This 118-nucleotide RNA from Dioscorea zingiberensis belongs to the Rfam family "mir-172 microRNA precursor family". About the family: mir-172 has been experimentally verified in Arabidopsis thaliana. This family is thought to target mRNAs coding for APETALA2-like transcription factors. The mature sequence is excised from the 3' arm of the hairpin. The source organism's lineage runs through Eukaryota, Euphyllophyta, Liliopsida, Petrosaviidae and Dioscorea.
[Rfam]
RNA sequence: AAGUUUGCAGGUGCAGCAUGAUCAAGAUUCACAGUUGGGUGCUUUUGAGAAUGAAGGAAUUGAGAGUUCAUCUGAUAUCCUCAAAUGAGAAUCUUGAUGAUGCUGCAUCAGCAAUAAC
Numbered sequence: 001a002a003g004u005u006u007g008c009a010g011g012u013g014c015a016g017c018a019u020g021a022u023c024a025a026g027a028u029u030c031a032c033a034g035u036u037g038g039g040u041g042c043u044u045u046u047g048a049g050a051a052u053g054a055a056g057g058a059a060u061u062g063a064g065a066g067u068u069c070a071u072c073u074g075a076u077a078u079c080c081u082c083a084a085a086u087g088a089g090a091a092u093c094u095u096g097a098u099g100a101u102g103c104u105g106c107a108u109c110a111g112c113a114a115u116a117a118c
Stems, first nucleotide, its partner, number of pairs: 010109010021098010032087002